The family of this 105-nucleotide RNA from Planococcus halotolerans is "TPP riboswitch aptamer (THI element)".
Gene Ontology term of the family: thiamine pyrophosphate binding.
Pairs were carried over by alignment from the consensus structure, which is taken from published work.
[Rfam]
RNA sequence: UUUCUGCACUGGGGGUGCUUAUUUAGCUGAGAUGCGAGCGAAAGCUCCGAUCCCUUAUGACUCGAUCAGGUUAGGACCUGCGUGAGGAAGUGCGGUGACUUUCCG
Number, nucleotide and partner (000 for none) at each position: 001u000002u000003u000004c000005u000006g093007c092008a091009c090010u089011g055012g054013g053014g052015g000016u049017g027018c026019u025020u000021a000022u000023u000024u000025a019026g018027c017028u000029g000030a000031g000032a000033u000034g048035c000036g047037a046038g045039c044040g000041a000042a000043a000044g039045c038046u037047c036048c034049g016050a000051u000052c014053c013054c012055u011056u000057a000058u000059g000060a000061c086062u085063c084064g083065a000066u000067c080068a079069g078070g077071u000072u000073a000074g000075g000076a000077c070078c069079u068080g067081c000082g000083u064084g063085a062086g061087g000088a000089a010090g009091u008092g007093c006094g000095g000096u000097g000098a000099c000100u000101u000102u000103c000104c000105g000